[Rfam]
RNA sequence: AUUUGUUCGCGUUAAGGAUUGAAAUGACAUCCUUUUUCUUUUUCAGAAAAAGAUAUAAUGUAAAGCCUGACCCCCG
Number, nucleotide and partner (000 for none) at each position: 001a000002u000003u000004u000005g000006u000007u000008c000009g000010c000011g000012u000013u000014a000015a068016g067017g066018a000019u064020u063021g000022a000023a000024a059025u058026g000027a000028c000029a054030u053031c052032c000033u000034u000035u049036u048037u047038c046039u045040u000041u000042u000043u000044c000045a039046g038047a037048a036049a035050a000051a000052g031053a030054u029055a000056u000057a000058a025059u024060g000061u000062a000063a020064a019065g000066c017067c016068u015069g000070a000071c000072c000073c000074c000075c000076g000
RNA: Flavo-1 RNA